[Rfam]
RNA sequence: UGAAAAAACAUAAUUGAGUGCAGCGCUGGUGAAAUAAUCCCACCCCACGCAUCAAAAUUCCAGUAGGGAAUUCAUCAACGCUGCACUCAAUGAUGUUUCUC
Numbered sequence: 001u002g003a004a005a006a007a008a009c010a011u012a013a014u015u016g017a018g019u020g021c022a023g024c025g026c027u028g029g030u031g032a033a034a035u036a037a038u039c040c041c042a043c044c045c046c047a048c049g050c051a052u053c054a055a056a057a058u059u060c061c062a063g064u065a066g067g068g069a070a071u072u073c074a075u076c077a078a079c080g081c082u083g084c085a086c087u088c089a090a091u092g093a094u095g096u097u098u099c100u101c
Base pairs, nucleotide, nucleotide: 006098007097008096009095010094011093013091014090015089016088017087018086019085020084021083022082023081024080025079027077028076030074031073032072

Shown here is a 101-nucleotide RNA from Hevea brasiliensis, a member of the family "MIR397 microRNA precursor family". Gene Ontology terms of the family: RISC complex and miRNA-mediated post-transcriptional gene silencing. A search with the family's covariance model found it, with a score of 67 bits. Taxonomically the source falls in Hevea (Eukaryota, Viridiplantae, Mesangiospermae, fabids). A reference for the family is Wu et al. (2009), "Rice MicroRNA effector complexes and targets", Plant Cell.